[Rfam]
RNA sequence: UUGCCUUAAACUAAUGAGUAAGGAAAACAAAGCGAACGGUGGGAACCGGUCGCAGCAUCCAUGUAAUGGUGUGCAUGAAUUUAUGGAGGGGUUAUAGGCUAGCCAAGUGUUGACGCUGCUUACUUUGCAGAACUCACUUGUGCAGGCCUCCU
Numbered sequence: 001u002u003g004c005c006u007u008a009a010a011c012u013a014a015u016g017a018g019u020a021a022g023g024a025a026a027a028c029a030a031a032g033c034g035a036a037c038g039g040u041g042g043g044a045a046c047c048g049g050u051c052g053c054a055g056c057a058u059c060c061a062u063g064u065a066a067u068g069g070u071g072u073g074c075a076u077g078a079a080u081u082u083a084u085g086g087a088g089g090g091g092u093u094a095u096a097g098g099c100u101a102g103c104c105a106a107g108u109g110u111u112g113a114c115g116c117u118g119c120u121u122a123c124u125u126u127g128c129a130g131a132a133c134u135c136a137c138u139u140g141u142g143c144a145g146g147c148c149u150c151c152u
Stems, first nucleotide, its partner, number of pairs: 004023005032053004037048003055072005090152002096149005102143001104140002107137003116130004
The record is a 152-nucleotide RNA from Lupinus albus, which matches "U12 minor spliceosomal RNA" in Rfam. On this family, see Otake et al., Mol Cell 2002: "The divergent U12-type spliceosome is required for pre-mRNA splicing and is essential for development in Drosophila". Rfam classes the family as a spliceosomal small nuclear RNA. Gene Ontology terms of the family: pre-mRNA branch point binding, mRNA branch site recognition and U12 snRNP.